RNA sequence: GAUCAAUGAUGACAAUACCCAAAUCUGAGCAUCAGAAGGCCUUCCAGUCUACCUGAUGCAUGAUCUUUGUAGUUCAAGAA
Numbered sequence: 001g002a003u004c005a006a007u008g009a010u011g012a013c014a015a016u017a018c019c020c021a022a023a024u025c026u027g028a029g030c031a032u033c034a035g036a037a038g039g040c041c042u043u044c045c046a047g048u049c050u051a052c053c054u055g056a057u058g059c060a061u062g063a064u065c066u067u068u069g070u071a072g073u074u075c076a077a078g079a080a
Stems, first nucleotide, its partner, number of pairs: 029059005037050004
The family of this 80-nucleotide RNA sequence from Suricata suricatta is "Small nucleolar RNA U2-19". It is annotated as a C/D-box small nucleolar RNA. The base pairs follow the family's consensus structure, which is taken from published work. For this family Rfam cites "Guide RNAs with 5' Caps and Novel Box C/D snoRNA-like Domains for Modification of snRNAs in Metazoa" (Tycowski et al., Curr Biol, 2004). Lineage of the source: Eukaryota > Bilateria > Amniota > Theria > Suricata.